[Rfam]
The family of this 61-nucleotide RNA from Pristionchus pacificus is "mir-8364 microRNA precursor family".
RNA sequence: UCUUCAUUUCCCACACUCUCUCACCGGUCAGAGAGGCGAGAGAGUGUGGAAAAGGAAGAGA
Numbered sequence: 001u002c003u004u005c006a007u008u009u010c011c012c013a014c015a016c017u018c019u020c021u022c023a024c025c026g027g028u029c030a031g032a033g034a035g036g037c038g039a040g041a042g043a044g045u046g047u048g049g050a051a052a053a054g055g056a057a058g059a060g061a
Base pairs, nucleotide, nucleotide: 001059002058003057004056005055007053012048013047014046015045016044017043019041020040021039022038

Rfam links the family to the GO terms RISC complex and miRNA-mediated post-transcriptional gene silencing. The source organism's lineage runs through Eukaryota, Protostomia, Rhabditida, Diplogasteroidea and Pristionchus.